[Rfam]
Nucleotides: 133
Stems, first nucleotide, its partner, number of pairs: 003057005010049002016043004021038002083113005090105004
Number, partner (000 for none) and nucleotide at each position: 001000u002000g003057g004056u005055c006054c007053c008000u009000g010049u011048g012000u013000u014000a015000c016043c017042u018041g019040a020000a021038u022037u023000u024000a025000u026000u027000a028000u029000a030000c031000a032000a033000u034000a035000u036000g037022a038021a039000c040019u041018u042017g043016g044000g045000u046000g047000u048011c049010a050000a051000a052000a053007g054006g055005g056004a057003c058000a059000u060000a061000c062000a063000g064000u065000a066000a067000a068000a069000u070000c071000c072000a073000a074000c075000u076000u077000u078000u079000c080000c081000a082000c083113a084112a085111g086110c087109a088000u089000a090105u091104a092103u093102g094000a095000a096000u097000u098000u099000g100000a101000u102093c103092a104091u105090g106000u107000u108000u109087u110086g111085c112084u113083u114000a115000c116000u117000a118000a119000g120000a121000a122000u123000u124000g125000g126000a127000u128000a129000c130000a131000a132000c133000u
Record summary:
A member of the RNA family "Small nucleolar RNA psi18S-1377" from Diabrotica balteata, 133 nucleotides long. Rfam classes the family as an H/ACA-box small nucleolar RNA. It scores 48 bits against the family's covariance model. The family has 15 seed sequences and 113 matches in Rfam 15.1. NCBI's taxonomy places the organism under Eukaryota, Metazoa, Endopterygota, Neuropteroidea, Diabrotica. psi18S-1377 is a member of the H/ACA class of snoRNA. This family is responsible for guiding the modification of uridines 1377 and 1279 to pseudouridine in Drosophila 18S rRNA.